[Rfam]
RNA sequence: AUUGUCAACGGUAAAUCGGACUGAACGAAGCGCAGCGAAGUGAGGGAGAAUUUAAGGAGUUGACAAUUUUGCUACA
Numbered sequence: 001a002u003u004g005u006c007a008a009c010g011g012u013a014a015a016u017c018g019g020a021c022u023g024a025a026c027g028a029a030g031c032g033c034a035g036c037g038a039a040g041u042g043a044g045g046g047a048g049a050a051u052u053u054a055a056g057g058a059g060u061u062g063a064c065a066a067u068u069u070u071g072c073u074a075c076a
Base pairs, nucleotide, nucleotide: 001067002066003065004064005063006062007061008060009059

Bacillus-plasmid RNA: a 76-nucleotide sequence from Savagea serpentis. Lineage of the source: Bacteria > Bacillati > Bacilli > Caryophanaceae > Savagea. It scores 52 bits against the family's covariance model. Rfam classes the family as a small RNA.